[Rfam]
RNA sequence: GGAGAUUCUAUAGCGCCAGGCCCUGAACGGGUGACGAGGAAUGGCAGUUGUCGAAAGACUCGGCGGAUGCUGCCACGGCGUACAGUGCGUCGUGAAAGGGAAAGCAAAAAGCGGAAUCAAAACCGUAACAGAGGUUCCCUCAUCACUGAC
Numbered sequence: 001g002g003a004g005a006u007u008c009u010a011u012a013g014c015g016c017c018a019g020g021c022c023c024u025g026a027a028c029g030g031g032u033g034a035c036g037a038g039g040a041a042u043g044g045c046a047g048u049u050g051u052c053g054a055a056a057g058a059c060u061c062g063g064c065g066g067a068u069g070c071u072g073c074c075a076c077g078g079c080g081u082a083c084a085g086u087g088c089g090u091c092g093u094g095a096a097a098g099g100g101a102a103a104g105c106a107a108a109a110a111g112c113g114g115a116a117u118c119a120a121a122a123c124c125g126u127a128a129c130a131g132a133g134g135u136u137c138c139c140u141c142a143u144c145a146c147u148g149a150c
Stems, first nucleotide, its partner, number of pairs: 020032004042075005051063004076092006097140006111126004117121001